[Rfam]
Shown here is a 131-nucleotide sequence from Sporobacter termitidis, a member of the family "Molybdenum/Tungsten riboswitch aptamer (Moco RNA motif)". It scores 68 bits against the family's covariance model.
RNA sequence: UUGAAUACUGGUUUCCGUGUCAAACGCUCUAAAGGCCGCGCCCAUGACGUUUGACCUGAGCAUAUGCUCGCAGGGUACAGCUGGAAACGGCUAUGCCUUCCAUUUUGAGAAGGGAACAAAAAAGUGCAGGA
Numbered sequence: 001u002u003g004a005a006u007a008c009u010g011g012u013u014u015c016c017g018u019g020u021c022a023a024a025c026g027c028u029c030u031a032a033a034g035g036c037c038g039c040g041c042c043c044a045u046g047a048c049g050u051u052u053g054a055c056c057u058g059a060g061c062a063u064a065u066g067c068u069c070g071c072a073g074g075g076u077a078c079a080g081c082u083g084g085a086a087a088c089g090g091c092u093a094u095g096c097c098u099u100c101c102a103u104u105u106u107g108a109g110a111a112g113g114g115a116a117c118a119a120a121a122a123a124g125u126g127c128a129g130g131a
Stems, first nucleotide, its partner, number of pairs: 003125001006122001011117006019055008028047002034042003057070005073098005079092005099108002